RNA sequence: GUUACUAAGUAUGAAGGGACGAUGGGUGACUGAUGGAUAUCUAAUCUGAUUUCUAUGCAAAUGAACAUUUUUGCAAAACGGAAAUUGGAUUCGUCUGCCCAUUUAUCCCAUCAUCGUAACUCUUUUUGUACAUAAAGAGCUUUUUUGUGAUGACUAUAAAUGAUCAGUGAAUCCUUCCGUACAAAAACGGAGGAUUUUUUU
Numbered sequence: 001g002u003u004a005c006u007a008a009g010u011a012u013g014a015a016g017g018g019a020c021g022a023u024g025g026g027u028g029a030c031u032g033a034u035g036g037a038u039a040u041c042u043a044a045u046c047u048g049a050u051u052u053c054u055a056u057g058c059a060a061a062u063g064a065a066c067a068u069u070u071u072u073g074c075a076a077a078a079c080g081g082a083a084a085u086u087g088g089a090u091u092c093g094u095c096u097g098c099c100c101a102u103u104u105a106u107c108c109c110a111u112c113a114u115c116g117u118a119a120c121u122c123u124u125u126u127u128g129u130a131c132a133u134a135a136a137g138a139g140c141u142u143u144u145u146u147g148u149g150a151u152g153a154c155u156a157u158a159a160a161u162g163a164u165c166a167g168u169g170a171a172u173c174c175u176u177c178c179g180u181a182c183a184a185a186a187a188c189g190g191a192g193g194a195u196u197u198u199u200u201u
Stems, first nucleotide, its partner, number of pairs: 016109004023101004031093001043091012056075003059070004120139006170196005176191005
The family of this 201-nucleotide RNA sequence from Paenisporosarcina sp. HGH0030 is "Bacillus sRNA ncr1575". It is annotated as a small RNA. The family's consensus secondary structure is taken from published work.